[Rfam]
RNA sequence: UGUGCGAGCCGGGCCCCUCUGGCGGAUGAUGUUUAGAACACAUCAUUCGUGAUGUCGGAUCGCUCCC
Numbered sequence: 001u002g003u004g005c006g007a008g009c010c011g012g013g014c015c016c017c018u019c020u021g022g023c024g025g026a027u028g029a030u031g032u033u034u035a036g037a038a039c040a041c042a043u044c045a046u047u048c049g050u051g052a053u054g055u056c057g058g059a060u061c062g063c064u065c066c067c
Stems, first nucleotide, its partner, number of pairs: 006061002009058004022050011
Dot-bracket structure: .....((.((((.........(((((((((((.......)))))))))))....)))).))......
Rfam assigns this 67-nucleotide RNA from Roseicitreum antarcticum to the family "terC RNA". A search with the family's covariance model found it, with a score of 56 bits.